MIR6234 microRNA precursor family: a 146-nucleotide RNA sequence from Setaria italica. Gene Ontology terms of the family: RISC complex and miRNA-mediated post-transcriptional gene silencing. NCBI's taxonomy places the organism under Eukaryota, Spermatophyta, Mesangiospermae, Paniceae, Setaria.
RNA sequence: CUCUUUUCCUUGUGCAAGUGUGUUCCUCUGUUUGAUGCUAAAGAUGGAUGCUCUAAAUGAAACACUUCUCAAGUGUUGUUGCUUCCUUUUGUAGUAUUCUUACCUUUAGCGUCAAGAGACGAACACACUUGCACACAGAAAAACGG
Numbered sequence: 001c002u003c004u005u006u007u008c009c010u011u012g013u014g015c016a017a018g019u020g021u022g023u024u025c026c027u028c029u030g031u032u033u034g035a036u037g038c039u040a041a042a043g044a045u046g047g048a049u050g051c052u053c054u055a056a057a058u059g060a061a062a063c064a065c066u067u068c069u070c071a072a073g074u075g076u077u078g079u080u081g082c083u084u085c086c087u088u089u090u091g092u093a094g095u096a097u098u099c100u101u102a103c104c105u106u107u108a109g110c111g112u113c114a115a116g117a118g119a120c121g122a123a124c125a126c127a128c129u130u131g132c133a134c135a136c137a138g139a140a141a142a143a144c145g146g
Base pairs, nucleotide, nucleotide: 002146003145005143006142007141009138010137014132015131016130017129018128019127020126021125022124023123024122025121027119028118029117031116032115033114034113035112036111037110038109039108040107041106042105043104045102046099047098048097049096050095051094054091055090056089059085061083063081064080065078068075